[Rfam]
RNA: Fluoride riboswitch aptamer (crcB RNA motif)
RNA sequence: CAUAUGAAUGGUGAUGAAGCUCACCUUGAUAUUUUCUUUAUCAAAACCGUCUUUACAGACUAAUGGCUUCUACUCCCUA
Numbered sequence: 001c002a003u004a005u006g007a008a009u010g011g012u013g014a015u016g017a018a019g020c021u022c023a024c025c026u027u028g029a030u031a032u033u034u035u036c037u038u039u040a041u042c043a044a045a046a047c048c049g050u051c052u053u054u055a056c057a058g059a060c061u062a063a064u065g066g067c068u069u070c071u072a073c074u075c076c077c078u079a
Stems, first nucleotide, its partner, number of pairs: 010025004016070006049060004